[Rfam]
RNA sequence: UCUGGAGGACUAACAAGGCUGAGUCUGGAGAGUGAGACUCAGGUGACAGUGACCUCCUAAAAGAAAAGGGAUGGAGAGAGCAGUCCUACCUGCAGAAAAGCCCAGGGCUCACUGUGCCAUCUGACACUG
Numbered sequence: 001u002c003u004g005g006a007g008g009a010c011u012a013a014c015a016a017g018g019c020u021g022a023g024u025c026u027g028g029a030g031a032g033u034g035a036g037a038c039u040c041a042g043g044u045g046a047c048a049g050u051g052a053c054c055u056c057c058u059a060a061a062a063g064a065a066a067a068g069g070g071a072u073g074g075a076g077a078g079a080g081c082a083g084u085c086c087u088a089c090c091u092g093c094a095g096a097a098a099a100g101c102c103c104a105g106g107g108c109u110c111a112c113u114g115u116g117c118c119a120u121c122u123g124a125c126a127c128u129g
Stems, first nucleotide, its partner, number of pairs: 003059001004057005017044001019042001021040006068122003079113002082109006092101002
Overview: A member of the RNA family "Small Cajal body specific RNA 4" from Hypocryptadius cinnamomeus, 129 nucleotides long. The family's RNA type in Rfam is small Cajal body RNA. It scores 91 bits against the family's covariance model. scaRNAs are a specific class of small nuclear RNAs which localise to the Cajal bodies and guide the modification of RNA polymerase II transcribed spliceosomal RNAs U1, U2, U4, U5 and U12. The base pairs follow the family's consensus structure, which was predicted with RNAfold.